[Rfam]
Nucleotides: 146
Base pairs, nucleotide, nucleotide: 003055004054005053006052007051013047014046020041021040022039023038024037025036026035028033073090074089076087077086078085079084104146105145106144107143108142109141110140111139112138114136115135116134122129123128
Number, partner (000 for none) and nucleotide at each position: 001000c002000a003055c004054u005053a006052c007051c008000a009000a010000u011000u012000u013047g014046u015000g016000a017000g018000a019000g020041u021040c022039a023038u024037g025036a026035u027000c028033u029000g030000a031000a032000a033028a034000u035026a036025u037024c038023a039022u040021g041020a042000g043000a044000g045000g046014g047013c048000a049000a050000a051007g052006g053005u054004a055003g056000u057000u058000c059000a060000g061000u062000c063000u064000u065000a066000u067000u068000c069000c070000u071000g072000u073090g074089a075000u076087c077086u078085u079084g080000g081000u082000g083000a084079c085078a086077a087076g088000c089074u090073c091000c092000a093000a094000a095000a096000a097000u098000c099000a100000a101000a102000a103000c104146c105145a106144g107143u108142c109141a110140a111139g112138u113000u114136g115135c116134u117000u118000a119000g120000u121000a122129g123128u124000g125000a126000a127000a128123a129122c130000g131000a132000a133000a134116a135115g136114u137000u138112g139111c140110u141109u142108g143107a144106u145105u146104g

RT-14 RNA: a 146-nucleotide RNA. It is one of the family's seed sequences.